[Rfam]
RNA sequence: GACCCCCAGACAUGCCCGCCGCGUCCGUCGGCGACAUGCCCAGGUAGCUCUCGAUCUUCAAGGCUACGGCGCGGCGCGACCGCGCUGAUCGAAACCCCCGUUCGCUUCGCAUCGCUUGCCGCGAACAGCCACCGUACAAGCGGUGGCGGAUGC
Numbered sequence: 001g002a003c004c005c006c007c008a009g010a011c012a013u014g015c016c017c018g019c020c021g022c023g024u025c026c027g028u029c030g031g032c033g034a035c036a037u038g039c040c041c042a043g044g045u046a047g048c049u050c051u052c053g054a055u056c057u058u059c060a061a062g063g064c065u066a067c068g069g070c071g072c073g074g075c076g077c078g079a080c081c082g083c084g085c086u087g088a089u090c091g092a093a094a095c096c097c098c099c100g101u102u103c104g105c106u107u108c109g110c111a112u113c114g115c116u117u118g119c120c121g122c123g124a125a126c127a128g129c130c131a132c133c134g135u136a137c138a139a140g141c142g143g144u145g146g147c148g149g150a151u152g153c
Stems, first nucleotide, its partner, number of pairs: 011038004015033001018032004022027001044067006053090004068086007121153003128147008
The family of this 153-nucleotide sequence from Aromatoleum aromaticum is "radC RNA". The source organism's lineage runs through Bacteria, Pseudomonadati, Pseudomonadota, Betaproteobacteria and Aromatoleum aromaticum. By type it is a cis-regulatory element. Rfam's curators put it in the seed alignment.